[Rfam]
RNA sequence: UCAUACACUAACUGUAAAUCGCUUUGGAUAAGAGCGUCUACUAAAUGACUAAAA
Dot-bracket structure: ............((((...((((((.....))))))..))).)...........
Numbered sequence: 001u002c003a004u005a006c007a008c009u010a011a012c013u014g015u016a017a018a019u020c021g022c023u024u025u026g027g028a029u030a031a032g033a034g035c036g037u038c039u040a041c042u043a044a045a046u047g048a049c050u051a052a053a054a
Stems, first nucleotide, its partner, number of pairs: 013043001014041003020036006